[Rfam]
RNA sequence: AUUUUAGUGUAAGUAUGUCCCAUGCAGUAUUUAGGAUAUACAUGUACUAAAA
Dot-bracket structure: .....((((((..(((.(((.(........)..))).)))..))))))....

Shown here is a 52-nucleotide sequence from Diceros bicornis, a member of the family "mir-1302 microRNA precursor family". The family has 24 seed sequences and 16,160 matches in Rfam 15.1. On this family, see Morin et al., Genome Res 2008: "Application of massively parallel sequencing to microRNA profiling and discovery in human embryonic stem cells".